This 113-nucleotide RNA sequence from Lentivirus simimdef belongs to the Rfam family "HIV pol-1 stem loop". It is annotated as a cis-regulatory element.

RNA sequence: ACAGGCACGGUAUUGGUGGGACCAACACCAGUGAAUAUAAUUGGCAGAAAUAUAUUGACACAAAUUGGCUGUACUUUAAAUUUUCCUAUAAGUCCCAUUGAAACAGUGCCAGU
Dot-bracket structure: ...(((((.((.((((((((((........((.((((((...........)))))).))....((.((................)).))..)))))))))).)).)))))...